A member of the RNA family "mir-1388 microRNA precursor family" from Albula goreensis, 92 nucleotides long. Gene Ontology terms of the family: RISC complex and miRNA-mediated post-transcriptional gene silencing. Pairs were carried over by alignment from the consensus structure, which was predicted with RNAalifold. The match comes from Rfam's covariance-model search (85 bits).
RNA sequence: GCCAGAGCAAUGUUUCCAGGACUGUCCAGCCUGAGAAUGGUGAAGUUCUGGCUCAAUCUCAGGUUUGUCAGCCCAUAAAACAUUGCCUCAAU
Numbered sequence: 001g002c003c004a005g006a007g008c009a010a011u012g013u014u015u016c017c018a019g020g021a022c023u024g025u026c027c028a029g030c031c032u033g034a035g036a037a038u039g040g041u042g043a044a045g046u047u048c049u050g051g052c053u054c055a056a057u058c059u060c061a062g063g064u065u066u067g068u069c070a071g072c073c074c075a076u077a078a079a080a081c082a083u084u085g086c087c088u089c090a091a092u
Base pairs, nucleotide, nucleotide: 005089006088007087008085009084010083011082012081013080014079015078019074020073022071023070024069026067028065029064030063031062032061033060034059035058036057038055039054
Dot-bracket structure: ....(((((((((((...((.(((.(.(((((((((.((..............)).))))))))).).))).))...)))))))).)))...